The record is a 352-nucleotide sequence from Methanococcoides methylutens, which matches "Archaeal RNase P" in Rfam.
[Rfam]
RNA sequence: GAGAGAGGAAGGACGACCGCCGGGCCUUUGCCCUGAGGAAAGUCUCCCCAUCAUCCAGAUACACGAACGCCUGUAAAGGGCGUCUGGCGAGAGCCAGGGCGCUGGCACAGAAACGAUACCACCCCAUGUUAAUGCGAUGAUACUGAAAAGUUGAGGUCGCAUGGGAAGUGGAUGGAACGGCGAAUCCUCGUGGAUGCAAGUUGGAAGUAGGGAUCAAACGGGUUUCUGGACCGUCCCGAAGUUAUUAACGCUUAGCCGAAUGUCGUCAGUGCAGGAGUCCGAAAGGACCUUCCCUAUUCACCAUGUGAACAGGGGAAUUGCACCAACAGAAGGGAGCUUACUCUCCUCACUC
Numbered sequence: 001g002a003g004a005g006a007g008g009a010a011g012g013a014c015g016a017c018c019g020c021c022g023g024g025c026c027u028u029u030g031c032c033c034u035g036a037g038g039a040a041a042g043u044c045u046c047c048c049c050a051u052c053a054u055c056c057a058g059a060u061a062c063a064c065g066a067a068c069g070c071c072u073g074u075a076a077a078g079g080g081c082g083u084c085u086g087g088c089g090a091g092a093g094c095c096a097g098g099g100c101g102c103u104g105g106c107a108c109a110g111a112a113a114c115g116a117u118a119c120c121a122c123c124c125c126a127u128g129u130u131a132a133u134g135c136g137a138u139g140a141u142a143c144u145g146a147a148a149a150g151u152u153g154a155g156g157u158c159g160c161a162u163g164g165g166a167a168g169u170g171g172a173u174g175g176a177a178c179g180g181c182g183a184a185u186c187c188u189c190g191u192g193g194a195u196g197c198a199a200g201u202u203g204g205a206a207g208u209a210g211g212g213a214u215c216a217a218a219c220g221g222g223u224u225u226c227u228g229g230a231c232c233g234u235c236c237c238g239a240a241g242u243u244a245u246u247a248a249c250g251c252u253u254a255g256c257c258g259a260a261u262g263u264c265g266u267c268a269g270u271g272c273a274g275g276a277g278u279c280c281g282a283a284a285g286g287a288c289c290u291u292c293c294c295u296a297u298u299c300a301c302c303a304u305g306u307g308a309a310c311a312g313g314g315g316a317a318u319u320g321c322a323c324c325a326a327c328a329g330a331a332g333g334g335a336g337c338u339u340a341c342u343c344u345c346c347u348c349a350c351u352c
Stems, first nucleotide, its partner, number of pairs: 001352003005348005010342002012267006021035004040339003044336005049196004054229002058225001062192005067083005084097005098187002103183001105181002119171003123165007142151002200249004210237005
The match comes from Rfam's covariance-model search (203 bits). Rfam classes the family as a ribozyme. Taxonomically the source falls in Methanococcoides methylutens (Archaea, Methanosarcinales, Methanosarcinaceae, Methanococcoides). Ribonuclease P (RNase P) is a ubiquitous endoribonuclease, found in archaea, bacteria and eukarya as well as chloroplasts and mitochondria. Its best characterised activity is the generation of mature 5'-ends of tRNAs by cleaving the 5'-leader elements of precursor-tRNAs. Cellular RNase Ps are ribonucleoproteins.